[Rfam]
RNA sequence: AGUGAAGAUAGAGGUGCAAGCUUCAAUAGUAAGCAAUAUGAGGAGGAUGAGCUCCGAUGACGAUUGCCUAAAGGGGAGAUUGCCGAAGUAAAGGAUGACUCACUACAUUCUUUGCUGGUUCUGUGUUUAAGAAAUGCAGAAUUGUCAAGGUAUUAUAUCUUGGAGAGCUAUCUCACGA
Dot-bracket structure: .....((((((....((((.((((........(((((.........................))))).......)))).))))...(((((((((((........)))))))))))(((((((((((.....))))))))))).(((((((.....)))))))....)))))).....